[Rfam]
RNA sequence: GCACGUCCCGGAUCUUUUCCAAUCCGGCAGAUAACUUUAAGGUGAGGCAUUUAGGCGUUUUGCCGAGCCGGGUAUUGCGCAUAGCAUUGGCAUAUACAUUUACCGGCGUCCCCUAUACGGAUAGUUUUUACCGUUACCGUGCAUUUUAUUCCGAGCGCACUGGGCGCAAUUAUGGCAUUAUUCUUACACGUCCUUUUUCAUACAACUUGCACUCCCAAAUUUGCGUGCUUUGUGUAUGCGGUCUAAAAACACGUUUUUAGCCGUUCCAACUUGCUACAUUGGUUUGUAGUCCUGCUCGGUGUGGUUAUUUAACACCCUAUUUAAUCGCUCCAAAGCGAACAGGCGAAUUUUUGAUUUUCCAAGCCUCAAAAAUAGGUUUCCCACAAAAAAGGCUUUUUGUUU
Numbered sequence: 001g002c003a004c005g006u007c008c009c010g011g012a013u014c015u016u017u018u019c020c021a022a023u024c025c026g027g028c029a030g031a032u033a034a035c036u037u038u039a040a041g042g043u044g045a046g047g048c049a050u051u052u053a054g055g056c057g058u059u060u061u062g063c064c065g066a067g068c069c070g071g072g073u074a075u076u077g078c079g080c081a082u083a084g085c086a087u088u089g090g091c092a093u094a095u096a097c098a099u100u101u102a103c104c105g106g107c108g109u110c111c112c113c114u115a116u117a118c119g120g121a122u123a124g125u126u127u128u129u130a131c132c133g134u135u136a137c138c139g140u141g142c143a144u145u146u147u148a149u150u151c152c153g154a155g156c157g158c159a160c161u162g163g164g165c166g167c168a169a170u171u172a173u174g175g176c177a178u179u180a181u182u183c184u185u186a187c188a189c190g191u192c193c194u195u196u197u198u199c200a201u202a203c204a205a206c207u208u209g210c211a212c213u214c215c216c217a218a219a220u221u222u223g224c225g226u227g228c229u230u231u232g233u234g235u236a237u238g239c240g241g242u243c244u245a246a247a248a249a250c251a252c253g254u255u256u257u258u259a260g261c262c263g264u265u266c267c268a269a270c271u272u273g274c275u276a277c278a279u280u281g282g283u284u285u286g287u288a289g290u291c292c293u294g295c296u297c298g299g300u301g302u303g304g305u306u307a308u309u310u311a312a313c314a315c316c317c318u319a320u321u322u323a324a325u326c327g328c329u330c331c332a333a334a335g336c337g338a339a340c341a342g343g344c345g346a347a348u349u350u351u352u353g354a355u356u357u358u359c360c361a362a363g364c365c366u367c368a369a370a371a372a373u374a375g376g377u378u379u380c381c382c383a384c385a386a387a388a389a390a391g392g393c394u395u396u397u398u399g400u401u402u
Stems, first nucleotide, its partner, number of pairs: 008027006065110002067107003117134004138190004155167004199238006209228004215282004239263003243260007273290006291343004298316005325338005361395005375382002

The record is a 402-nucleotide RNA sequence, which matches "Bacteroidales-2 RNA" in Rfam. It is annotated as a small RNA. The sequence is in the family's curated seed alignment.